[Rfam]
RNA sequence: ACGGCCGCCCACUUUAAGUUUGAGCACCAAGCCUCAGGCUUAUUGUUUGGUGUUCAACCUUACAGUGAGCGGACUU
Numbered sequence: 001a002c003g004g005c006c007g008c009c010c011a012c013u014u015u016a017a018g019u020u021u022g023a024g025c026a027c028c029a030a031g032c033c034u035c036a037g038g039c040u041u042a043u044u045g046u047u048u049g050g051u052g053u054u055c056a057a058c059c060u061u062a063c064a065g066u067g068a069g070c071g072g073a074c075u076u
Base pairs, nucleotide, nucleotide: 006071007070008069010067011066012065013064015062016061017060025052026051027050028049029048030047031046032045

Rfam assigns this 76-nucleotide RNA sequence from Aphis gossypii to the family "mir-971 microRNA precursor family". Taxonomically the source falls in Aphis (Eukaryota, Hexapoda, Insecta, Paraneoptera).